A member of the RNA family "TPP riboswitch aptamer (THI element)" from Pseudoleptotrichia goodfellowii, 105 nucleotides long. A search with the family's covariance model found it, with a score of 63 bits. For this family Rfam cites "Thiamine-regulated gene expression of Aspergillus oryzae thiA requires splicing of the intron containing a riboswitch-like domain in the 5'-UTR" (Kubodera et al., FEBS Lett, 2003).
RNA sequence: AUCGGAAUACCGGGGAGCUUAUCGCUGAGAGUAGUUGCUGCAGCAACUUAACCCGUCAAACCUGAUUCGGAUAAUGCCGACGAAGGGAGUGCCGUUUAAUAUUUU
Numbered sequence: 001a002u003c004g005g006a007a008u009a010c011c012g013g014g015g016a017g018c019u020u021a022u023c024g025c026u027g028a029g030a031g032u033a034g035u036u037g038c039u040g041c042a043g044c045a046a047c048u049u050a051a052c053c054c055g056u057c058a059a060a061c062c063u064g065a066u067u068c069g070g071a072u073a074a075u076g077c078c079g080a081c082g083a084a085g086g087g088a089g090u091g092c093c094g095u096u097u098a099a100u101a102u103u104u105u
Base pairs, nucleotide, nucleotide: 008091009090010089011055012054013053014052016049017025018024033048034047035046036045037044038043061086062085063084067080068079069078070077